[Rfam]
RNA sequence: UUAAACGGGGGGGGGGGGGGGGGGGGGGUUUUUUUUUUUUUUUUAAAAAAAAAAAAAAAACCCCCGGGGGGUUUUUUUUUUUUUAAAAAAAAAAACCGGGGGGGGGGGGGGGGGUUUACCCCCCCCCCGUUUUUAAAAAAAAAAAAAACCCCCCCCCCCCCCCCCGGGGGGUUUUUAAAAAAAAAAACCCGGUUUUUUUUUUAAAAAAAAAACCGGGGGGGGGUUUUAAAAAAAACCCCCCCCUUUAAAAACGGGGGGUUUUUUAAAACCCCCC
Numbered sequence: 001u002u003a004a005a006c007g008g009g010g011g012g013g014g015g016g017g018g019g020g021g022g023g024g025g026g027g028g029u030u031u032u033u034u035u036u037u038u039u040u041u042u043u044u045a046a047a048a049a050a051a052a053a054a055a056a057a058a059a060a061c062c063c064c065c066g067g068g069g070g071g072u073u074u075u076u077u078u079u080u081u082u083u084u085a086a087a088a089a090a091a092a093a094a095a096c097c098g099g100g101g102g103g104g105g106g107g108g109g110g111g112g113g114g115u116u117u118a119c120c121c122c123c124c125c126c127c128c129g130u131u132u133u134u135a136a137a138a139a140a141a142a143a144a145a146a147a148a149c150c151c152c153c154c155c156c157c158c159c160c161c162c163c164c165c166g167g168g169g170g171g172u173u174u175u176u177a178a179a180a181a182a183a184a185a186a187a188c189c190c191g192g193u194u195u196u197u198u199u200u201u202u203a204a205a206a207a208a209a210a211a212a213c214c215g216g217g218g219g220g221g222g223g224u225u226u227u228a229a230a231a232a233a234a235a236c237c238c239c240c241c242c243c244u245u246u247a248a249a250a251a252c253g254g255g256g257g258g259u260u261u262u263u264u265a266a267a268a269c270c271c272c273c274c
Stems, first nucleotide, its partner, number of pairs: 001248004007243003011239001015189002017162008026151004033055003037052005065129007074089003098122004172179002191237010253274009
RNA: BsrG